[Rfam]
RNA sequence: GUCCGGGAAACAAUGAUGCGAUCAUUUCCAAGCACAUAUCUGAUGAUGCCAUGUGGAAAUAAACUCCUGAGUUUCCUGGAC
Dot-bracket structure: ((((((.((((...........................................................)))).))))))
RNA: Small nucleolar RNA SNORD121A
Organism: Sorex araneus